The record is a 35-nucleotide RNA from Paenibacillus pinihumi, which matches "L31-Firmicutes ribosomal protein leader" in Rfam. NCBI's taxonomy places the organism under Bacteria, Bacillati, Caryophanales, Paenibacillaceae, Paenibacillus pinihumi. The base pairs follow the family's consensus structure, which is taken from published work. On this family, see Eckert and Weinberg, BMC Microbiol 2020: "Discovery of 20 novel ribosomal leader candidates in bacteria and archaea". By type it is a cis-regulatory leader.
[Rfam]
RNA sequence: CUCUGGGUCCAUCAGUCGGCUCAGGGCAGAAAGAG
Numbered sequence: 001c002u003c004u005g006g007g008u009c010c011a012u013c014a015g016u017c018g019g020c021u022c023a024g025g026g027c028a029g030a031a032a033g034a035g
Stems, first nucleotide, its partner, number of pairs: 001026008